[Rfam]
RNA sequence: CAGCCGGGGAAGGAUCGGCCGUGGCAACAGCCUGAUAGCCACGUAGCGAAUCGGACGCUGAAGGCAGGGCAACCGCUUCAGUGAAAGCUCCGAGGAUAAAGUCCCCGCCGUCGCAAGACGGGACCGCCCAGGGGGGCGAGCAAGUGACCGGGCCGCAACAUAA
Numbered sequence: 001c002a003g004c005c006g007g008g009g010a011a012g013g014a015u016c017g018g019c020c021g022u023g024g025c026a027a028c029a030g031c032c033u034g035a036u037a038g039c040c041a042c043g044u045a046g047c048g049a050a051u052c053g054g055a056c057g058c059u060g061a062a063g064g065c066a067g068g069g070c071a072a073c074c075g076c077u078u079c080a081g082u083g084a085a086a087g088c089u090c091c092g093a094g095g096a097u098a099a100a101g102u103c104c105c106c107g108c109c110g111u112c113g114c115a116a117g118a119c120g121g122g123a124c125c126g127c128c129c130a131g132g133g134g135g136g137c138g139a140g141c142a143a144g145u146g147a148c149c150g151g152g153c154c155g156c157a158a159c160a161u162a163a
Base pairs, nucleotide, nucleotide: 020043021042022041023040024039051093052092053091054090055089056083057082058081059080060079061078067074068073101137102136103135104134105133106132140156141155
The family of this 163-nucleotide sequence from Limnochorda pilosa is "Group II catalytic intron D1-D4-4".
Group II introns are found in rRNA, tRNA and mRNA of organelles in fungi, plants and protists, and also in mRNA in bacteria.
It scores 73 bits against the family's covariance model.
Its family is annotated with Group II intron splicing in the Gene Ontology.